RNA sequence: CAGUCGAGUAGAAGCGGUCAGCACUGAACGGGUCCGACACCGGACACCUCAGCGCAGGGCAUUGCUCUGGCG
Numbered sequence: 001c002a003g004u005c006g007a008g009u010a011g012a013a014g015c016g017g018u019c020a021g022c023a024c025u026g027a028a029c030g031g032g033u034c035c036g037a038c039a040c041c042g043g044a045c046a047c048c049u050c051a052g053c054g055c056a057g058g059g060c061a062u063u064g065c066u067c068u069g070g071c072g
Stems, first nucleotide, its partner, number of pairs: 006067005015057001018059002021055002024052004